[Rfam]
RNA sequence: UGCGAUGAGUCGAGAAAGACCAGGUGAUGACUAGUUCAUCAUUCCGCUGCGGCGGCAUAGUGGUUAUAUUUCGAUGCAGGACACAGAUGCUAGCGUAUUCUAGCGUGUUUACUAGUAUGUAUUGUGGAGUAC
Numbered sequence: 001u002g003c004g005a006u007g008a009g010u011c012g013a014g015a016a017a018g019a020c021c022a023g024g025u026g027a028u029g030a031c032u033a034g035u036u037c038a039u040c041a042u043u044c045c046g047c048u049g050c051g052g053c054g055g056c057a058u059a060g061u062g063g064u065u066a067u068a069u070u071u072c073g074a075u076g077c078a079g080g081a082c083a084c085a086g087a088u089g090c091u092a093g094c095g096u097a098u099u100c101u102a103g104c105g106u107g108u109u110u111a112c113u114a115g116u117a118u119g120u121a122u123u124g125u126g127g128a129g130u131a132c
Stems, first nucleotide, its partner, number of pairs: 018065005023043008044055004080109005089104005119132005
Record summary: This 132-nucleotide RNA sequence from Liquorilactobacillus capillatus belongs to the Rfam family "Enterococcus sRNA 68 (Lacto-3 RNA)". On this family, see Innocenti et al., RNA 2015: "Whole-genome mapping of 5' RNA ends in bacteria by tagged sequencing: a comprehensive view in Enterococcus faecalis". A search with the family's covariance model found it, with a score of 87 bits. NCBI's taxonomy places the organism under Bacteria, Bacillati, Bacillota, Lactobacillales, Liquorilactobacillus capillatus. The family's RNA type in Rfam is small RNA.